This 123-nucleotide sequence from Gossypium mustelinum belongs to the Rfam family "MIR7504 microRNA precursor family". Lineage of the source: Eukaryota > Euphyllophyta > Malvales > Malvaceae > Gossypium. The family's consensus secondary structure was predicted with RNAalifold. The match comes from Rfam's covariance-model search (102 bits). Rfam 15.1 lists 7,343 matches to the family in 61 species.
[Rfam]
RNA sequence: AAUAGGAGAAUGACAAAUCAGAUUUUUCCUUAUGAUUUUUAGCAUUUUUAGUUGGAUUUAAAUUUUUUCAAGAGGAAAAAGCUGAAAAUCAAGAGGAAAAUUCUUAUUUGUCAUUCUCCUAUU
Numbered sequence: 001a002a003u004a005g006g007a008g009a010a011u012g013a014c015a016a017a018u019c020a021g022a023u024u025u026u027u028c029c030u031u032a033u034g035a036u037u038u039u040u041a042g043c044a045u046u047u048u049u050a051g052u053u054g055g056a057u058u059u060a061a062a063u064u065u066u067u068u069c070a071a072g073a074g075g076a077a078a079a080a081g082c083u084g085a086a087a088a089u090c091a092a093g094a095g096g097a098a099a100a101u102u103c104u105u106a107u108u109u110g111u112c113a114u115u116c117u118c119c120u121a122u123u
Base pairs, nucleotide, nucleotide: 001123002122003121004120005119006118007117008116009115010114011113012112013111014110015109016108017107018106020104021103022102024100025099026098027097029095030094031093033091034090035089036088037087038086039085041083042082045079046078047077048076